Bacterial RNase P class A: a 399-nucleotide RNA from Brytella acorum. The match comes from Rfam's covariance-model search (316 bits). By type it is a ribozyme. Gene Ontology terms of the family: ribonuclease P activity, dimeric ribonuclease P complex and tRNA processing.
RNA sequence: CCAGACGGUCGGGCAGCCGCUGUCGCCGCGAUGCGGAUCGCGGCGAUGGAGGAAAGUCCGGGCUCCACGGGAGAACGAUGCCGGCUAACGGCCGGCGGGGGUGACCCUAGGGAAAGUGCCACAGAAAACAGACCGCCCGCCUGGCCUCGUGCUGCGGGUAAGGAUGAAACGGUGCGGUAAGAGCGCACCGCUUCCCUGGCAACAGGGAGGGCAUGGCAAACCCCAUCGGGAGCAAGACCGAAUAGGAACGGCCGGUCGGCGUUCACGCGCGCGGCCAGAGGCUCUCCCGCCUCGUCGUUCGGGUUGGUCGCGUGAGGCGUGCCGCGAGGCUCGUCCCAGAGGAAUGGCUGCCCCAUCAGCAAUGAUGGACAGAACCCGGCUUACAGACCGUCUGGCCUU
Numbered sequence: 001c002c003a004g005a006c007g008g009u010c011g012g013g014c015a016g017c018c019g020c021u022g023u024c025g026c027c028g029c030g031a032u033g034c035g036g037a038u039c040g041c042g043g044c045g046a047u048g049g050a051g052g053a054a055a056g057u058c059c060g061g062g063c064u065c066c067a068c069g070g071g072a073g074a075a076c077g078a079u080g081c082c083g084g085c086u087a088a089c090g091g092c093c094g095g096c097g098g099g100g101g102u103g104a105c106c107c108u109a110g111g112g113a114a115a116g117u118g119c120c121a122c123a124g125a126a127a128a129c130a131g132a133c134c135g136c137c138c139g140c141c142u143g144g145c146c147u148c149g150u151g152c153u154g155c156g157g158g159u160a161a162g163g164a165u166g167a168a169a170c171g172g173u174g175c176g177g178u179a180a181g182a183g184c185g186c187a188c189c190g191c192u193u194c195c196c197u198g199g200c201a202a203c204a205g206g207g208a209g210g211g212c213a214u215g216g217c218a219a220a221c222c223c224c225a226u227c228g229g230g231a232g233c234a235a236g237a238c239c240g241a242a243u244a245g246g247a248a249c250g251g252c253c254g255g256u257c258g259g260c261g262u263u264c265a266c267g268c269g270c271g272c273g274g275c276c277a278g279a280g281g282c283u284c285u286c287c288c289g290c291c292u293c294g295u296c297g298u299u300c301g302g303g304u305u306g307g308u309c310g311c312g313u314g315a316g317g318c319g320u321g322c323c324g325c326g327a328g329g330c331u332c333g334u335c336c337c338a339g340a341g342g343a344a345u346g347g348c349u350g351c352c353c354c355a356u357c358a359g360c361a362a363u364g365a366u367g368g369a370c371a372g373a374a375c376c377c378g379g380c381u382u383a384c385a386g387a388c389c390g391u392c393u394g395g396c397c398u399u
Stems, first nucleotide, its partner, number of pairs: 001395010011384001012352007020049012054382003058379005063232004071287001073285001076228005081095005096110001097108004111223002116221002118217003133163002135159006171189006190212001191210008236309004246300006278293005316335004321330003